[Rfam]
RNA sequence: GCGUGGAUGGCCGAGUGGUCUAAGGCGCUCGACUCAAGUUCGAGUAUCUUCGGAUGCGUGAGUUCAAAUCUCACUCUACGUA
Number, nucleotide and partner (000 for none) at each position: 001g081002c080003g079004u078005g077006g076007a075008u000009g000010g026011c025012c024013g000014a000015g000016u000017g000018g000019u000020c000021u000022a000023a000024g012025g011026c010027g000028c044029u043030c042031g041032a040033c000034u000035c000036a000037a000038g000039u000040u032041c031042g030043a029044g028045u000046a000047u000048c000049u000050u000051c000052g000053g000054a000055u000056g000057c000058g074059u073060g072061a071062g070063u000064u000065c000066a000067a000068a000069u000070c062071u061072c060073a059074c058075u007076c006077u005078a004079c003080g002081u001082a000
This 82-nucleotide RNA sequence from Thalassiosira oceanica belongs to the Rfam family "tRNA". Taxonomically the source falls in Thalassiosira (Eukaryota, Stramenopiles, Ochrophyta, Thalassiosirophyceae). Rfam classes the family as a transfer RNA. The base pairs follow the family's consensus structure, which is taken from published work. The match comes from Rfam's covariance-model search (55 bits).